[Rfam]
The family of this 97-nucleotide sequence from Rothia nasimurium is "Bacterial small signal recognition particle RNA". A search with the family's covariance model found it, with a score of 57 bits. The organism belongs to Rothia, within Bacteria. The signal recognition particle (SRP) is a universally conserved ribonucleoprotein involved in the co-translational targeting of proteins to membranes. On this family, see Rosenblad et al., Nucleic Acids Res 2003: "SRPDB: Signal Recognition Particle Database". The family's RNA type in Rfam is non-coding RNA gene.
RNA sequence: GGGAGCCCCUUACGUGGCGUCAUCGUGGAAAACUCCCCCAGGGCCGGAAGGCAGCAAGGGUAUCUGGGCUCUGACGGGUGCGUAGGGGGUCUUUAGU
Numbered sequence: 001g002g003g004a005g006c007c008c009c010u011u012a013c014g015u016g017g018c019g020u021c022a023u024c025g026u027g028g029a030a031a032a033c034u035c036c037c038c039c040a041g042g043g044c045c046g047g048a049a050g051g052c053a054g055c056a057a058g059g060g061u062a063u064c065u066g067g068g069c070u071c072u073g074a075c076g077g078g079u080g081c082g083u084a085g086g087g088g089g090u091c092u093u094u095a096g097u
Stems, first nucleotide, its partner, number of pairs: 005090010015078001018076005024068001026066004035060003043052003